This 597-nucleotide part of an RNA from Felis catus belongs to the Rfam family "Eukaryotic large subunit ribosomal RNA". The match comes from Rfam's covariance-model search (2045 bits).
[Rfam]
RNA sequence: AAGUCGGCAAGCCGGAUCCGUAACUUCGGGAUAAGGAUUGGCUCUAAGGGCUGGGCGCGCGCCGCGGCUGGACGAGGCGCCGCCGCCCCCCCCACGCCCGGGGCACCCCCGCCCGGGCCCGCCCCCGCGGCCCUCCUCCGCCCCACCCCGCGCGGCUCCCCCCGCUCUCCUCUCCCCCCCUCCCUUCCCGGGGUGGGGGCGGGGAGGCGGGGCGGGGGGGCGGCGGGGCCCCGGCGGCGGGGGAGGUCCCCCGCGGGGCCCGCGGGCCCACGGGGGCCCGGGCACCCGGGGGGCCGGCGGCGGCGGCGACUCUGGACGCGAGCCGGGCCCUUCCCGUGGAUCGCCCCAGCUGCGGCGGGCGUCGCGGCCGCACCCGGGGAGCCCGGCGGGCGCCGGCGCGCCCCGCCGCGCGCGGGGGGGGUCGGGCGGCGGGCGGCGGGGGUUCCGUCCCCCGUCUUCCCCCGCCCUCGCCCCCCUCGCCGCCGCGGCGGUCGGCGCGCCGGUCCCCCCCGCCGGGUCCGCCCCCGGGCCGCGGUUCCGCGCGGCGCCUCGCCUCGGCCGGCGCCUAGCAGCCGACUUAGAACUGGUGCGGACCAG
Numbered sequence: 001a002a003g004u005c006g007g008c009a010a011g012c013c014g015g016a017u018c019c020g021u022a023a024c025u026u027c028g029g030g031a032u033a034a035g036g037a038u039u040g041g042c043u044c045u046a047a048g049g050g051c052u053g054g055g056c057g058c059g060c061g062c063c064g065c066g067g068c069u070g071g072a073c074g075a076g077g078c079g080c081c082g083c084c085g086c087c088c089c090c091c092c093c094a095c096g097c098c099c100g101g102g103g104c105a106c107c108c109c110c111g112c113c114c115g116g117g118c119c120c121g122c123c124c125c126c127g128c129g130g131c132c133c134u135c136c137u138c139c140g141c142c143c144c145a146c147c148c149c150g151c152g153c154g155g156c157u158c159c160c161c162c163c164g165c166u167c168u169c170c171u172c173u174c175c176c177c178c179c180c181u182c183c184c185u186u187c188c189c190g191g192g193g194u195g196g197g198g199g200c201g202g203g204g205a206g207g208c209g210g211g212g213c214g215g216g217g218g219g220g221c222g223g224c225g226g227g228g229c230c231c232c233g234g235c236g237g238c239g240g241g242g243g244a245g246g247u248c249c250c251c252c253g254c255g256g257g258g259c260c261c262g263c264g265g266g267c268c269c270a271c272g273g274g275g276g277c278c279c280g281g282g283c284a285c286c287c288g289g290g291g292g293g294c295c296g297g298c299g300g301c302g303g304c305g306g307c308g309a310c311u312c313u314g315g316a317c318g319c320g321a322g323c324c325g326g327g328c329c330c331u332u333c334c335c336g337u338g339g340a341u342c343g344c345c346c347c348a349g350c351u352g353c354g355g356c357g358g359g360c361g362u363c364g365c366g367g368c369c370g371c372a373c374c375c376g377g378g379g380a381g382c383c384c385g386g387c388g389g390g391c392g393c394c395g396g397c398g399c400g401c402c403c404c405g406c407c408g409c410g411c412g413c414g415g416g417g418g419g420g421g422u423c424g425g426g427c428g429g430c431g432g433g434c435g436g437c438g439g440g441g442g443u444u445c446c447g448u449c450c451c452c453c454g455u456c457u458u459c460c461c462c463c464g465c466c467c468u469c470g471c472c473c474c475c476c477u478c479g480c481c482g483c484c485g486c487g488g489c490g491g492u493c494g495g496c497g498c499g500c501c502g503g504u505c506c507c508c509c510c511c512g513c514c515g516g517g518u519c520c521g522c523c524c525c526c527g528g529g530c531c532g533c534g535g536u537u538c539c540g541c542g543c544g545g546c547g548c549c550u551c552g553c554c555u556c557g558g559c560c561g562g563c564g565c566c567u568a569g570c571a572g573c574c575g576a577c578u579u580a581g582a583a584c585u586g587g588u589g590c591g592g593a594c595c596a597g
Stems, first nucleotide, its partner, number of pairs: 015039005024029001040585002043582006049574005055565004061559003586590001